[Rfam]
RNA: mir-7398 microRNA precursor family
Organism: Monodelphis domestica
RNA sequence: UGUGUGGAGGAGAGUGAGGGUACUGUACACUAUCUGGUAACCCUUCCAUACUCUCACAUU
Numbered sequence: 001u002g003u004g005u006g007g008a009g010g011a012g013a014g015u016g017a018g019g020g021u022a023c024u025g026u027a028c029a030c031u032a033u034c035u036g037g038u039a040a041c042c043c044u045u046c047c048a049u050a051c052u053c054u055c056a057c058a059u060u
Stems, first nucleotide, its partner, number of pairs: 002057003006054004011049001014046001016044001018042001022038003